RNA sequence: AGCUAAACGGGAUUGAAAUGGAAAUCCUUUUUGUAUGCUGAGCUUGUCGAAGCACAAAAAGAUUGGAAUGUAAAGCCCGGCUAACA
Numbered sequence: 001a002g003c004u005a006a007a008c009g010g011g012a013u014u015g016a017a018a019u020g021g022a023a024a025u026c027c028u029u030u031u032u033g034u035a036u037g038c039u040g041a042g043c044u045u046g047u048c049g050a051a052g053c054a055c056a057a058a059a060a061g062a063u064u065g066g067a068a069u070g071u072a073a074a075g076c077c078c079g080g081c082u083a084a085c086a
Stems, first nucleotide, its partner, number of pairs: 009078003013074002018069002023064004029059005036054003